[Rfam]
RNA sequence: AAUUGAUUGUUUGUUAUGAUAUAUUGUCCAUAGCAGACUUGAUAAAAGCAAAAA
Dot-bracket structure: .......(((((((((((..........))))))))))..).............
A member of the RNA family "Lacto-rpoB RNA" from Ligilactobacillus salivarius, 54 nucleotides long.
Pairs were carried over by alignment from the consensus structure, which is taken from published work.
By type it is a cis-regulatory element.